Annotation:
The record is a 149-nucleotide sequence from Chlorocebus sabaeus, which matches "U4 spliceosomal RNA" in Rfam. By type it is a spliceosomal small nuclear RNA. A reference for the family is Zwieb (1997), "The uRNA database", Nucleic Acids Res. Rfam links the family to the GO terms spliceosomal tri-snRNP complex assembly and U4 snRNP. The source organism's lineage runs through Eukaryota, Teleostomi, Mammalia, Boreoeutheria and Chlorocebus. About the family: U4 small nuclear RNA (U4 snRNA) is a component of the major U2-dependent spliceosome.
RNA sequence: AGCUUUGCACAGUGGCAGUAUUGUAGCUGAUGAGGUUUAUCCAAGGCACGGUUAUUGCUAAUUGAAAAAUUGAGGAAUAGUUUAGUAAAACAUACAGAUCUUAAGUAUGUAGUUCAAUGGUGUUUUACAAAUAUCUGUCUGUAGCCAAC
Numbered sequence: 001a002g003c004u005u006u007g008c009a010c011a012g013u014g015g016c017a018g019u020a021u022u023g024u025a026g027c028u029g030a031u032g033a034g035g036u037u038u039a040u041c042c043a044a045g046g047c048a049c050g051g052u053u054a055u056u057g058c059u060a061a062u063u064g065a066a067a068a069a070u071u072g073a074g075g076a077a078u079a080g081u082u083u084a085g086u087a088a089a090a091c092a093u094a095c096a097g098a099u100c101u102u103a104a105g106u107a108u109g110u111a112g113u114u115c116a117a118u119g120g121u122g123u124u125u126u127a128c129a130a131a132u133a134u135c136u137g138u139c140u141g142u143a144g145c146c147a148a149c
Base pairs, nucleotide, nucleotide: 020052021051022050023049024048026047027046028045034042035041082129085128086127087126088125089124090123091122092121093120